[Rfam]
RNA sequence: AGCCGUUGAAUAAGUGGAUUCGACGAAGGACUAAGUGGAGUCAGAGUU
Numbered sequence: 001a002g003c004c005g006u007u008g009a010a011u012a013a014g015u016g017g018a019u020u021c022g023a024c025g026a027a028g029g030a031c032u033a034a035g036u037g038g039a040g041u042c043a044g045a046g047u048u
Base pairs, nucleotide, nucleotide: 004025005024006023007022008021009020010019011018029042030041031040032039